[Rfam]
RNA sequence: GGUGCGGGCCGGGCCCCUCUGGCGAUCGGAAUCGAUCGUGAUGUCGGACCGCAUCG
Numbered sequence: 001g002g003u004g005c006g007g008g009c010c011g012g013g014c015c016c017c018u019c020u021g022g023c024g025a026u027c028g029g030a031a032u033c034g035a036u037c038g039u040g041a042u043g044u045c046g047g048a049c050c051g052c053a054u055c056g
Stems, first nucleotide, its partner, number of pairs: 006050002009047004022039007